[Rfam]
RNA sequence: CUUGUAAGAUAAGCGCCAGAGCUUGCGUGAUGAGACGGUUCGAUUCUUGAGAAUUCGGUUGAUGAAUCAAGAGAGGGACGUCCAUACGGGAAGCUGACGAGGUGAAGGUGUUCGAAAUUUCGGCGGGGACCUUCCGGUUAUUGCAGACCAAUCGAAAGCCGACAAGCAAAAGAAUUGGGCGACCGAUUCCACAAACUUGCGGCAGGCUGCUCC
Numbered sequence: 001c002u003u004g005u006a007a008g009a010u011a012a013g014c015g016c017c018a019g020a021g022c023u024u025g026c027g028u029g030a031u032g033a034g035a036c037g038g039u040u041c042g043a044u045u046c047u048u049g050a051g052a053a054u055u056c057g058g059u060u061g062a063u064g065a066a067u068c069a070a071g072a073g074a075g076g077g078a079c080g081u082c083c084a085u086a087c088g089g090g091a092a093g094c095u096g097a098c099g100a101g102g103u104g105a106a107g108g109u110g111u112u113c114g115a116a117a118u119u120u121c122g123g124c125g126g127g128g129a130c131c132u133u134c135c136g137g138u139u140a141u142u143g144c145a146g147a148c149c150a151a152u153c154g155a156a157a158g159c160c161g162a163c164a165a166g167c168a169a170a171a172g173a174a175u176u177g178g179g180c181g182a183c184c185g186a187u188u189c190c191a192c193a194a195a196c197u198u199g200c201g202g203c204a205g206g207c208u209g210c211u212c213c
Stems, first nucleotide, its partner, number of pairs: 020095005026089001104134005112123004135154005158203004163199002172189007
RNA: glmS glucosamine-6-phosphate activated ribozyme aptamer